[Rfam]
RNA sequence: GGUGGCGUCCGGGGUCUGGUGGGCCCCCCGGUCUUCAAAACCGGUGAAGCUGAGCAUCUCGGCUUGGCGGGUUCGAUUCCCGUCCGCCACC
Numbered sequence: 001g002g003u004g005g006c007g008u009c010c011g012g013g014g015u016c017u018g019g020u021g022g023g024c025c026c027c028c029c030g031g032u033c034u035u036c037a038a039a040a041c042c043g044g045u046g047a048a049g050c051u052g053a054g055c056a057u058c059u060c061g062g063c064u065u066g067g068c069g070g071g072u073u074c075g076a077u078u079c080c081c082g083u084c085c086g087c088c089a090c091c
Base pairs, nucleotide, nucleotide: 001091002090003089004088005087006086007085011026012025013024015022016021028044029043030042031041032040047065048064049063050062051061068082069081070080071079